[Rfam]
Nucleotides: 043
Base pairs, nucleotide, nucleotide: 001016002015003014005012006011030043031042032041033040034039
Number, partner (000 for none) and nucleotide at each position: 001016c002015g003014c004000u005012g006011g007000a008000c009000g010000a011006c012005c013000u014003g015002c016001g017000c018000c019000g020000u021000g022000g023000u024000g025000a026000c027000a028000a029000u030043c031042g032041g033040g034039g035000a036000c037000g038000g039034c040033c041032c042031c043030g